This 224-nucleotide RNA sequence from Sorangium cellulosum belongs to the Rfam family "Group II catalytic intron D1-D4-6".

RNA sequence: AGAGUCCCGCCCGGCAAGGUUGGCCCACCAGCCGGAAGUGAGUCUUGCGUGGUGCCGGGCGACCGGCGUCGCGAAGCGUAGACAGCGAGCGUGCGGGCCGUGGGAUAGAGCCUCGAAAGAACGGAGGUCGUGGGGCCGACGUCGUGAGCGUAGCGGAAGGCAACAUCGUCGCGUCAAGAGCGAGCCUGGGUAGCCCCCGCUCGCUCUGGCGGGAUCCCUGACCG
Numbered sequence: 001a002g003a004g005u006c007c008c009g010c011c012c013g014g015c016a017a018g019g020u021u022g023g024c025c026c027a028c029c030a031g032c033c034g035g036a037a038g039u040g041a042g043u044c045u046u047g048c049g050u051g052g053u054g055c056c057g058g059g060c061g062a063c064c065g066g067c068g069u070c071g072c073g074a075a076g077c078g079u080a081g082a083c084a085g086c087g088a089g090c091g092u093g094c095g096g097g098c099c100g101u102g103g104g105a106u107a108g109a110g111c112c113u114c115g116a117a118a119g120a121a122c123g124g125a126g127g128u129c130g131u132g133g134g135g136c137c138g139a140c141g142u143c144g145u146g147a148g149c150g151u152a153g154c155g156g157a158a159g160g161c162a163a164c165a166u167c168g169u170c171g172c173g174u175c176a177a178g179a180g181c182g183a184g185c186c187u188g189g190g191u192a193g194c195c196c197c198c199g200c201u202c203g204c205u206c207u208g209g210c211g212g213g214a215u216c217c218c219u220g221a222c223c224g
Base pairs, nucleotide, nucleotide: 011035012034013033014032015031018029019028020027021183023181024180038086039085042083043082044081045080046078047077048073049072050071051070052069053068054067055066056065057064058063108216110215112213113212114211115210130200131199132198133197134196135161136160137159140155141154142153167193170190171185172184

Rfam's curators write: Group II introns are found in rRNA, tRNA and mRNA of organelles in fungi, plants and protists, and also in mRNA in bacteria. On this family, see Lehmann and Schmidt, Crit Rev Biochem Mol Biol 2003: "Group II introns: structure and catalytic versatility of large natural ribozymes".